Record summary
The family of this 98-nucleotide RNA from Propionigenium maris is "Purine riboswitch aptamer". From the family's description: Riboswitches are metabolite binding domains within certain messenger RNAs that serve as precision sensors for their corresponding targets. The organism belongs to Propionigenium maris, within Bacteria. Pairs were carried over by alignment from the consensus structure, which is taken from published work.
RNA sequence: UAAAUUAACAAAUAUAACGCUCAUAUAUUCUCGAAAUAUGGUCGAGAGUCUCUACGGCUAACCUUAAAUUAGCUACUAUGGGUGAUAGGGAUAAAUUA
Numbered sequence: 001u002a003a004a005u006u007a008a009c010a011a012a013u014a015u016a017a018c019g020c021u022c023a024u025a026u027a028u029u030c031u032c033g034a035a036a037u038a039u040g041g042u043c044g045a046g047a048g049u050c051u052c053u054a055c056g057g058c059u060a061a062c063c064u065u066a067a068a069u070u071a072g073c074u075a076c077u078a079u080g081g082g083u084g085a086u087a088g089g090g091a092u093a094a095a096u097u098a
Base pairs, nucleotide, nucleotide: 018084019083020082021081022080023079024078025077029047030046031045032044033043034042056074057073058072059071060070061069